This 152-nucleotide RNA sequence from Purpureocillium lilacinum belongs to the Rfam family "Small nucleolar RNA snR80". Taxonomically the source falls in Purpureocillium (Eukaryota, Pezizomycotina, leotiomyceta, Hypocreomycetidae). The literature on the family includes a 2004 paper in Nucleic Acids Res by Schattner et al., "Genome-wide searching for pseudouridylation guide snoRNAs: analysis of the Saccharomyces cerevisiae genome". Its Rfam clan is "SNORA28 clan". By type it is an H/ACA-box small nucleolar RNA.
[Rfam]
RNA sequence: GAACGCCCUUGGCUACACUCUGAAAUAUACCCAUCUCCGCAAUGGUAUUUUUCAAUUUUUGUUCAAGGAAGAAUACUUGAAGGCUCGAUACUCACCCCAACACUCUGGCACUGAUGCCCGUGGGUGUAGGGGUCCAUUAACCUAGCCCACAU
Numbered sequence: 001g002a003a004c005g006c007c008c009u010u011g012g013c014u015a016c017a018c019u020c021u022g023a024a025a026u027a028u029a030c031c032c033a034u035c036u037c038c039g040c041a042a043u044g045g046u047a048u049u050u051u052u053c054a055a056u057u058u059u060u061g062u063u064c065a066a067g068g069a070a071g072a073a074u075a076c077u078u079g080a081a082g083g084c085u086c087g088a089u090a091c092u093c094a095c096c097c098c099a100a101c102a103c104u105c106u107g108g109c110a111c112u113g114a115u116g117c118c119c120g121u122g123g124g125u126g127u128a129g130g131g132g133u134c135c136a137u138u139a140a141c142c143u144a145g146c147c148c149a150c151a152u
Stems, first nucleotide, its partner, number of pairs: 009066003021054005028047004082147004095132004100127006